Overview:
Fluoride riboswitch aptamer (crcB RNA motif): a 70-nucleotide RNA sequence from Rufibacter radiotolerans. For this family Rfam cites "Fluoride ion encapsulation by Mg2+ ions and phosphates in a fluoride riboswitch" (Ren et al., Nature, 2012). The base pairs follow the family's consensus structure, which is taken from published work. It scores 52 bits against the family's covariance model.

RNA sequence: UUUGGCCCGGGUGAUGGGGUACCACCAAUUCAACCGCCUCUUUGCAAAGGCUGAUGACUCCUACAUGGGU
Dot-bracket structure: .........[[[[..(((((..]]]].........((((........)))).....))))).........